Notes: The family of this 75-nucleotide RNA sequence from Allacma fusca is "mir-219 microRNA precursor family". Pairs were carried over by alignment from the consensus structure, which was predicted with RNAalifold. It scores 67 bits against the family's covariance model.
[Rfam]
RNA sequence: CGAGGCUUUGAUUGUCCAAACGCAAUUCUUGUAUUUUUUUAUAACCAAGAGUUGUGUGGGGACAUCACCGCUUUG
Numbered sequence: 001c002g003a004g005g006c007u008u009u010g011a012u013u014g015u016c017c018a019a020a021c022g023c024a025a026u027u028c029u030u031g032u033a034u035u036u037u038u039u040u041a042u043a044a045c046c047a048a049g050a051g052u053u054g055u056g057u058g059g060g061g062a063c064a065u066c067a068c069c070g071c072u073u074u075g
Stems, first nucleotide, its partner, number of pairs: 002074005009067004014063004021056011